[Rfam]
RNA sequence: UUACUAGGUCCGUGCUUCCUUACUUCCCAUAUAGUGUUUGUUUUAUGGAAUGUAAAGAAGUAUGGAGCCUGUAC
Numbered sequence: 001u002u003a004c005u006a007g008g009u010c011c012g013u014g015c016u017u018c019c020u021u022a023c024u025u026c027c028c029a030u031a032u033a034g035u036g037u038u039u040g041u042u043u044u045a046u047g048g049a050a051u052g053u054a055a056a057g058a059a060g061u062a063u064g065g066a067g068c069c070u071g072u073a074c
Stems, first nucleotide, its partner, number of pairs: 007068001009066010020055004025050001027048005
Notes:
This 74-nucleotide sequence from Pediculus humanus belongs to the Rfam family "mir-1 microRNA precursor family". From the family's description: This family represents the microRNA (miRNA) mir-1 family. miRNAs are transcribed as ~70nt precursors (modelled here) and subsequently processed by the Dicer enzyme to give a ~22nt product. Taxonomically the source falls in Pediculus humanus (Eukaryota, Eumetazoa, Protostomia, Eumetabola). It scores 60 bits against the family's covariance model. For this family Rfam cites "microRNAs: tiny regulators with great potential" (Ambros, Cell, 2001).